Shown here is an 86-nucleotide RNA from Octopus sinensis, a member of the family "Selenocysteine transfer RNA". Lineage of the source: Eukaryota > Metazoa > Protostomia > Octopoda > Octopus. The family's consensus secondary structure is taken from published work.
[Rfam]
RNA sequence: GCCUGAACGAGCUUCAGUGGUCUGGAGUGCAGGCUUCAAACCUGUAGCUGACUGACGUCAGAGUGGUUCAUUUCCACCUUUCGGGC
Numbered sequence: 001g002c003c004u005g006a007a008c009g010a011g012c013u014u015c016a017g018u019g020g021u022c023u024g025g026a027g028u029g030c031a032g033g034c035u036u037c038a039a040a041c042c043u044g045u046a047g048c049u050g051a052c053u054g055a056c057g058u059c060a061g062a063g064u065g066g067u068u069c070a071u072u073u074c075c076a077c078c079u080u081u082c083g084g085g086c
Stems, first nucleotide, its partner, number of pairs: 001086007009078001012027006028046006048061005063077004
Gene Ontology term of the family: triplet codon-amino acid adaptor activity.